RNA: DUF805b RNA
Nucleotides: 037
Stems, first nucleotide, its partner, number of pairs: 003020003010036003
Number, partner (000 for none) and nucleotide at each position: 001000c002000c003020g004019g005018u006000g007000g008000a009000a010036u011035c012034c013000g014000a015000a016000a017000a018005a019004c020003c021000a022000u023000a024000g025000a026000a027000g028000a029000g030000a031000g032000u033000a034012g035011g036010a037000a